[Rfam]
RNA: Leucine operon leader
Nucleotides: 147
Base pairs, nucleotide, nucleotide: 004108006106007105008104009103010102012100013099014098016097017095018094030086031085032084033083034082035081036080037079046074047073048072049071050070054068055067056066057065120144121143122142123141124140125139126138127137128136129135130134
Number, partner (000 for none) and nucleotide at each position: 001000u002000u003000a004108a005000g006106g007105u008104u009103u010102g011000a012100a013099u014098u015000c016097a017095u018094g019000a020000u021000u022000c023000g024000u025000u026000u027000u028000a029000c030086c031085c032084g033083c034082c035081u036080a037079c038000u039000c040000g041000g042000u043000c044000u045000a046074c047073u048072a049071c050070u051000a052000a053000a054068c055067g056066c057065a058000c059000c060000u061000c062000u063000g064000c065057u066056g067055c068054g069000c070050g071049g072048u073047a074046g075000g076000c077000u078000u079037g080036u081035g082034g083033g084032c085031g086030g087000a088000a089000u090000c091000a092000a093000a094018c095017a096000c097016u098014g099013a100012u101000u102010c103009g104008a105007g106006c107000c108004u109000g110000a111000a112000c113000a114000a115000a116000u117000c118000a119000a120144g121143a122142a123141a124140c125139c126138c127137g128136c129135g130134c131000c132000a133000u134130g135129c136128g137127c138126g139125g140124g141123u142122u143121u144120u145000u146000u147000u